[Rfam]
RNA sequence: GUGCCCGGACAUGAUGAGAACUACGUUGGUAGGGACAUCUGAGUGAUUGAUGAAUGCCAACGUAUCUGAGCUGGGCGC
Numbered sequence: 001g002u003g004c005c006c007g008g009a010c011a012u013g014a015u016g017a018g019a020a021c022u023a024c025g026u027u028g029g030u031a032g033g034g035a036c037a038u039c040u041g042a043g044u045g046a047u048u049g050a051u052g053a054a055u056g057c058c059a060a061c062g063u064a065u066c067u068g069a070g071c072u073g074g075g076c077g078c
Stems, first nucleotide, its partner, number of pairs: 001078005